[Rfam]
RNA sequence: AAGAGAGCAGUGAUUAUAAAACAUAAGAUUAAAACUCUGAUCUGCUCAUUUUUAUGGGCAUGAUAGACUCAUUAUACACCCAUAGAAUCUGAGCUCUC
Numbered sequence: 001a002a003g004a005g006a007g008c009a010g011u012g013a014u015u016a017u018a019a020a021a022c023a024u025a026a027g028a029u030u031a032a033a034a035c036u037c038u039g040a041u042c043u044g045c046u047c048a049u050u051u052u053u054a055u056g057g058g059c060a061u062g063a064u065a066g067a068c069u070c071a072u073u074a075u076a077c078a079c080c081c082a083u084a085g086a087a088u089c090u091g092a093g094c095u096c097u098c
Stems, first nucleotide, its partner, number of pairs: 003098002006095002

A member of the RNA family "Small nucleolar RNA snoR8a" from Arabis nemorensis, 98 nucleotides long.
Rfam links the family to the GO terms RNA processing and nucleolus.
The family's RNA type in Rfam is C/D-box small nucleolar RNA.